The family of this 169-nucleotide sequence from Streptomyces beijiangensis is "c-di-AMP riboswitch aptamer (ydaO/yuaA leader)". The organism belongs to Streptomyces, within Bacteria. The match comes from Rfam's covariance-model search (79 bits).
[Rfam]
Nucleotides: 169
Base pairs, nucleotide, nucleotide: 011153012152013151014150018049019048020047050148051147052146053145054144055143060074061073075133076132077131083105084104085103086102087101088100108127109126110125111124
Number, partner (000 for none) and nucleotide at each position: 001000c002000g003000u004000g005000c006000u007000g008000c009000c010000a011153c012152g013151c014150c015000g016000a017000g018049u019048c020047c021000g022000c023000u024000c025000u026000g027000u028000c029000u030000u031000a032000u033000g034000a035000c036000g037000u038000a039000c040000g041000a042000c043000a044000g045000u046000u047020g048019g049018a050148g051147c052146c053145g054144g055143g056000g057000a058000c059000c060074c061073a062000c063000c064000a065000a066000g067000c068000a069000c070000c071000a072000c073061u074060g075133g076132g077131g078000u079000g080000a081000a082000u083105c084104g085103g086102u087101c088100c089000g090000u091000a092000c093000c094000c095000c096000c097000a098000a099000a100088g101087g102086a103085c104084c105083g106000u107000a108127g109126g110125g111124c112000g113000g114000c115000c116000u117000u118000c119000c120000g121000a122000c123000a124111g125110c126109c127108c128000g129000a130000a131077c132076c133075c134000g135000a136000c137000a138000g139000c140000u141000a142000a143055c144054c145053c146052g147051g148050u149000a150014g151013g152012c153011g154000g155000u156000c157000c158000a159000c160000g161000g162000a163000a164000g165000g166000a167000a168000c169000a